[Rfam]
RNA sequence: GGCUAUGUCCCAUGUCCGUCGGCGUUGCCGACAACAUGCCCAGGUAGUCCAGACCUUCAAGGCUACGGUGCGUUGCGACGCACGGUCUGAUUCUUCACCACGACGCUCACCGCGUCUUCUUCCAUCCCCCUGGGGCAGUGACUGCCCUCGCGGGU
Numbered sequence: 001g002g003c004u005a006u007g008u009c010c011c012a013u014g015u016c017c018g019u020c021g022g023c024g025u026u027g028c029c030g031a032c033a034a035c036a037u038g039c040c041c042a043g044g045u046a047g048u049c050c051a052g053a054c055c056u057u058c059a060a061g062g063c064u065a066c067g068g069u070g071c072g073u074u075g076c077g078a079c080g081c082a083c084g085g086u087c088u089g090a091u092u093c094u095u096c097a098c099c100a101c102g103a104c105g106c107u108c109a110c111c112g113c114g115u116c117u118u119c120u121u122c123c124a125u126c127c128c129c130c131u132g133g134g135g136c137a138g139u140g141a142c143u144g145c146c147c148u149c150g151c152g153g154g155u
Base pairs, nucleotide, nucleotide: 011038012037013036014035015033018032019031020030021029022028023027044066045065046064047063048062049061052088055085068083069082070081071080072079073078124155125154126153132148133147134146135145136144137143138142
Rfam assigns this 155-nucleotide RNA from Alicycliphilus denitrificans to the family "radC RNA". Rfam 15.1 lists 500 matches to the family in 142 species. It scores 90 bits against the family's covariance model.